A member of the RNA family "Small nucleolar RNA U109" from Peromyscus maniculatus, 132 nucleotides long.
Gene Ontology terms of the family: RNA processing and nucleolus.
The organism belongs to Peromyscus maniculatus, within Eukaryota.
Rfam classes the family as an H/ACA-box small nucleolar RNA.
RNA sequence: UUGCAUGUGGAAGUACCUUCUCCUUCCCUUUGGAGCAGGAGUACAUCCAGAACAUGCUACAUUACAAGAGGCGUUCUCAGGGCUGCCAGCCUUGCAGCAGAGGCUGAGUGGUAGUAUAUUUCUCCUACACAA
Numbered sequence: 001u002u003g004c005a006u007g008u009g010g011a012a013g014u015a016c017c018u019u020c021u022c023c024u025u026c027c028c029u030u031u032g033g034a035g036c037a038g039g040a041g042u043a044c045a046u047c048c049a050g051a052a053c054a055u056g057c058u059a060c061a062u063u064a065c066a067a068g069a070g071g072c073g074u075u076c077u078c079a080g081g082g083c084u085g086c087c088a089g090c091c092u093u094g095c096a097g098c099a100g101a102g103g104c105u106g107a108g109u110g111g112u113a114g115u116a117u118a119u120u121u122c123u124c125c126u127a128c129a130c131a132a
Base pairs, nucleotide, nucleotide: 003057004056005055006054007053008052016039017038018037020035021034022033023032070125071124073122082112083111086108087106088105089104090103091102092101093100
A reference for the family is Gu et al. (2005), "A novel experimental approach for systematic identification of box H/ACA snoRNAs from eukaryotes", Nucleic Acids Res.